Notes: terC RNA: a 56-nucleotide RNA sequence from Sandaracinobacteroides saxicola. It is annotated as a cis-regulatory element.

RNA sequence: GCCGCAAUCCGGGCCCCUCUGGCGGUGUGGCGACACCGUGAUGUCGGAUGAAGCAU
Number, nucleotide and partner (000 for none) at each position: 001g000002c000003c000004g000005c000006a000007a049008u048009c047010c046011g045012g044013g000014c000015c000016c000017c000018u000019c000020u000021g000022g039023c038024g037025g036026u035027g034028u033029g000030g000031c000032g000033a028034c027035a026036c025037c024038g023039u022040g000041a000042u000043g000044u012045c011046g010047g009048a008049u007050g000051a000052a000053g000054c000055a000056u000
About this RNA:
NCBI's taxonomy places the organism under Bacteria, Pseudomonadati, Pseudomonadota, Sphingomonadales, Sandaracinobacteroides. Pairs were carried over by alignment from the consensus structure, which is taken from published work.